[Rfam]
RNA sequence: GGGGGCGAACAGGUUUCGACCGGAUAGGCGAAGCGUCGGCGGCGUGUCGUGGUUGAUCAGUUGGCCACGUUAAAAGCUGAUCACAAUCUUCAAUUGCUGAAGGUUCCUACGCUUUGGCUGCCUAGUUAAAUAGGCAUCCCGGACUAAGGACUGACGUCGGGUCGGUCCGGACGUCCGUCACCAAUCCCGACUAGUCGCACGGCAAACGUUGGAUACACGUGCGGCGAAAUAAAGUUUCCGACUAGCGACCACGGAGCCCUGUCGACGAGGCGCCGUGCGAGCGAAAUCAAUUUCAUCGACUACACACGUAGAAGUUGCCGUGGAGAUAUCUCGGGACGCGGGUUCGAUUCCCGCCGCCUCCACUU
Numbered sequence: 001g002g003g004g005g006c007g008a009a010c011a012g013g014u015u016u017c018g019a020c021c022g023g024a025u026a027g028g029c030g031a032a033g034c035g036u037c038g039g040c041g042g043c044g045u046g047u048c049g050u051g052g053u054u055g056a057u058c059a060g061u062u063g064g065c066c067a068c069g070u071u072a073a074a075a076g077c078u079g080a081u082c083a084c085a086a087u088c089u090u091c092a093a094u095u096g097c098u099g100a101a102g103g104u105u106c107c108u109a110c111g112c113u114u115u116g117g118c119u120g121c122c123u124a125g126u127u128a129a130a131u132a133g134g135c136a137u138c139c140c141g142g143a144c145u146a147a148g149g150a151c152u153g154a155c156g157u158c159g160g161g162u163c164g165g166u167c168c169g170g171a172c173g174u175c176c177g178u179c180a181c182c183a184a185u186c187c188c189g190a191c192u193a194g195u196c197g198c199a200c201g202g203c204a205a206a207c208g209u210u211g212g213a214u215a216c217a218c219g220u221g222c223g224g225c226g227a228a229a230u231a232a233a234g235u236u237u238c239c240g241a242c243u244a245g246c247g248a249c250c251a252c253g254g255a256g257c258c259c260u261g262u263c264g265a266c267g268a269g270g271c272g273c274c275g276u277g278c279g280a281g282c283g284a285a286a287u288c289a290a291u292u293u294c295a296u297c298g299a300c301u302a303c304a305c306a307c308g309u310a311g312a313a314g315u316u317g318c319c320g321u322g323g324a325g326a327u328a329u330c331u332c333g334g335g336a337c338g339c340g341g342g343u344u345c346g347a348u349u350c351c352c353g354c355c356g357c358c359u360c361c362a363c364u365u
Stems, first nucleotide, its partner, number of pairs: 001361007020334003023330004033321003037317004043308005048069005056081007117139001122134002140177005148168006156191006194225008208242005245282002250277005256271003261300004267293002338354005
RNA: transfer-messenger RNA
Organism: Lacipirellula parvula